[Rfam]
RNA sequence: UAUAAAUAAGGUGAAGGUGCUCACCUAUAAUUGCUCAUUAAAUUGAGAUGAUGGCUCCUAUUUACUG
Numbered sequence: 001u002a003u004a005a006a007u008a009a010g011g012u013g014a015a016g017g018u019g020c021u022c023a024c025c026u027a028u029a030a031u032u033g034c035u036c037a038u039u040a041a042a043u044u045g046a047g048a049u050g051a052u053g054g055c056u057c058c059u060a061u062u063u064a065c066u067g
Stems, first nucleotide, its partner, number of pairs: 010025004016058002019055003034047003
The family of this 67-nucleotide RNA from Halanaerobium hydrogeniformans is "Fluoride riboswitch aptamer (crcB RNA motif)". The source organism's lineage runs through Bacteria, Bacillati, Bacillota, Halanaerobiales and Halanaerobium. The base pairs follow the family's consensus structure, which is taken from published work.